[Rfam]
RNA sequence: AUGCCUUAAACUAAUGAGUAAGGAAAAUAAUGAGCCUGGGUAGCUACAGGCUCCCAAGUAAAAUCUUGGAUUAAUUUCUCUCAGGGGUACAGGACACCCCCAGGUGACCUGCUUACUUUUGCAGGAUGCCUGGGUAGUAGUGGACUGCCCU
Numbered sequence: 001a002u003g004c005c006u007u008a009a010a011c012u013a014a015u016g017a018g019u020a021a022g023g024a025a026a027a028u029a030a031u032g033a034g035c036c037u038g039g040g041u042a043g044c045u046a047c048a049g050g051c052u053c054c055c056a057a058g059u060a061a062a063a064u065c066u067u068g069g070a071u072u073a074a075u076u077u078c079u080c081u082c083a084g085g086g087g088u089a090c091a092g093g094a095c096a097c098c099c100c101c102a103g104g105u106g107a108c109c110u111g112c113u114u115a116c117u118u119u120u121g122c123a124g125g126a127u128g129c130c131u132g133g134g135u136a137g138u139a140g141u142g143g144a145c146u147g148c149c150c151u
Stems, first nucleotide, its partner, number of pairs: 004023005032053007054069005084151005091146002095142003100134002102131005108125005
Record summary: U12 minor spliceosomal RNA: a 151-nucleotide RNA sequence from Mizuhopecten yessoensis. The family is grouped with related families in Rfam's "U2 clan". The pairing is the family consensus, mapped onto this sequence.